The family of this 476-nucleotide part of an RNA from Metschnikowia cubensis is "Eukaryotic large subunit ribosomal RNA".

[Rfam]
RNA sequence: UUUUCCUCACUGUCCCAAGACUACCCGCUGAACUUAAGCAUAUCAAUAAGCGGAGGAAAAGAAACCAACAGGGAUUACCUCAGUAACGGCGAGUGAAGCGGUAAAAGCUCAAAUUUGAAAUCUUCGGAAUUGUAAUUUGAUGGAUAAAAUUGCCACGGACAAAAGUUCACUGGAAAGUGACGCCGUAGAGGGUGAUAGCCCCGUUUACGUCCAACGGCACUAUAAUUUUAUUCCAAAGAGUCGGGUUGUUUGGGAAUGCAGCUCAAAGUGGGUGGUAAAUUCCAUCUAAAGCUAAAUAUUGACGAGAGACCGAUAGCGAACAAGUACAGUGAUGGAAAGAUGAAAAGAACUUUGAAAAGAGAGUGAAACAGUACGUGAAAUUGUUGAAAGGGAAGGGGAGGGAAGAUGUUAAAGGGAGUCCUUCGCAGUAGGGAUCCCCCCCAAGAGUCUUUCCUCUCGCCCGUCUUGAAACACGG
Dot-bracket structure: .......................((((((.....((....))......))))).).........((....))...((((......((.....)).....))))..((((..((((..((.((....)).))..))))....((((((.(.((((..((((....(.((((......)))))..(...)..((.......)).......))))...)))).)......)))).))........(((((((........))))))).....(((((........)))))..)))).................................((....))...............((((....))))..................................((((((((((((.......................................))))))))))))..((((........))))
It is one of the family's seed sequences. For this family Rfam cites "Crystal structure of the ribosome at 5.5 A resolution" (Yusupov et al., Science, 2001).